[Rfam]
Shown here is an 81-nucleotide sequence from Anabas testudineus, a member of the family "mir-194 microRNA precursor family". Its family is annotated with miRNA-mediated post-transcriptional gene silencing and RISC complex in the Gene Ontology.

RNA sequence: UGGUGUUUGCUGGAUGUAACAGCAACUCCAUGUGGAAUCUGUGCUUGUUCCAGUGGAGGUGCUGUUACCUGCAGAAAGCCA
Numbered sequence: 001u002g003g004u005g006u007u008u009g010c011u012g013g014a015u016g017u018a019a020c021a022g023c024a025a026c027u028c029c030a031u032g033u034g035g036a037a038u039c040u041g042u043g044c045u046u047g048u049u050c051c052a053g054u055g056g057a058g059g060u061g062c063u064g065u066u067a068c069c070u071g072c073a074g075a076a077a078g079c080c081a
Stems, first nucleotide, its partner, number of pairs: 010074003016068008026058006033052003